[Rfam]
RNA sequence: UAAGUCAUAAUUUGUAAGUCGCUUUGGAUAAAAGCGUCUGCUAAAUGAUUAAAU
Number, nucleotide and partner (000 for none) at each position: 001u000002a000003a000004g000005u000006c000007a000008u000009a000010a000011u000012u000013u043014g041015u040016a039017a000018g000019u000020c036021g035022c034023u033024u032025u031026g000027g000028a000029u000030a000031a025032a024033a023034g022035c021036g020037u000038c000039u016040g015041c014042u000043a013044a000045a000046u000047g000048a000049u000050u000051a000052a000053a000054u000
RNA: UnaL2 LINE 3' element
Organism: Sinocyclocheilus rhinocerous